About this RNA
A member of the RNA family "pan motif" from Gottfriedia endophytica, 90 nucleotides long. Rfam classes the family as a cis-regulatory element. Pairs were carried over by alignment from the consensus structure, which is taken from published work.

[Rfam]
RNA sequence: UGGGUGGUAUCCUACUAUGGAACUACACCGUAUUUUUUUAUAUUAAUAAAAAAGAUCUGCCUUGAUCCGAAUAUGGACUUGGACAGAGGA
Numbered sequence: 001u002g003g004g005u006g007g008u009a010u011c012c013u014a015c016u017a018u019g020g021a022a023c024u025a026c027a028c029c030g031u032a033u034u035u036u037u038u039u040a041u042a043u044u045a046a047u048a049a050a051a052a053a054g055a056u057c058u059g060c061c062u063u064g065a066u067c068c069g070a071a072u073a074u075g076g077a078c079u080u081g082g083a084c085a086g087a088g089g090a
Base pairs, nucleotide, nucleotide: 001030002029003028004026005025006024007023008022010021011020057086058085059084060082061081064078066077067076068075